[Rfam]
RNA sequence: GAGCAAAGAUGAAUGCAUAAUUGCUUUCUGACACCUCUUAUGUUAGCGGUCAUUUCCGGGCUGCAAUGAUUCCAAAAAGUUUCCUGAGCUC
Dot-bracket structure: ((((...................................................................................))))
Shown here is a 91-nucleotide RNA sequence from Haemonchus placei, a member of the family "Small nucleolar RNA sn2903".
NCBI's taxonomy places the organism under Eukaryota, Bilateria, Ecdysozoa, Strongyloidea, Haemonchus.
On this family, see Zemann et al., Nucleic Acids Res 2006: "Evolution of small nucleolar RNAs in nematodes".
The base pairs follow the family's consensus structure, which was predicted with WAR.
Its Rfam clan is "SNORD60 clan".
It is annotated as a C/D-box small nucleolar RNA.
The match comes from Rfam's covariance-model search (68 bits).